[Rfam]
RNA sequence: UUCCUGGCUGGAUUCUCCACCAAUUGCCUCGGUGGAUCUCGUCGAGAAUCUGCCGAGAUGAUAACGCGUUUUUUACGGAUGUGUUUUGUGCGCGUGUAAAGGCCCUCCUAACCUUAUGAGUUCCGGAGAGGAAACAAAAACAAGUCCUAGUU
Numbered sequence: 001u002u003c004c005u006g007g008c009u010g011g012a013u014u015c016u017c018c019a020c021c022a023a024u025u026g027c028c029u030c031g032g033u034g035g036a037u038c039u040c041g042u043c044g045a046g047a048a049u050c051u052g053c054c055g056a057g058a059u060g061a062u063a064a065c066g067c068g069u070u071u072u073u074u075a076c077g078g079a080u081g082u083g084u085u086u087u088g089u090g091c092g093c094g095u096g097u098a099a100a101g102g103c104c105c106u107c108c109u110a111a112c113c114u115u116a117u118g119a120g121u122u123c124c125g126g127a128g129a130g131g132a133a134a135c136a137a138a139a140a141c142a143a144g145u146c147c148u149a150g151u152u
Stems, first nucleotide, its partner, number of pairs: 005022003009019004027060001028057009037047004078146003081141002084139006103131002105128004111121002115119001

Rfam assigns this 152-nucleotide part of an RNA from Trichoderma citrinoviride to the family "Ascomycota telomerase RNA". Rfam 15.1 lists 475 matches to the family in 456 species. The base pairs follow the family's consensus structure. On this family, see Qi et al., Nucleic Acids Res 2013: "The common ancestral core of vertebrate and fungal telomerase RNAs". The family is grouped with related families in Rfam's "Telomerase clan". Gene Ontology terms of the family: telomerase activity, telomere maintenance via telomerase and telomerase catalytic core complex. A search with the family's covariance model found it, with a score of 363 bits. Lineage of the source: Eukaryota > Opisthokonta > Dikarya > Pezizomycotina > Trichoderma.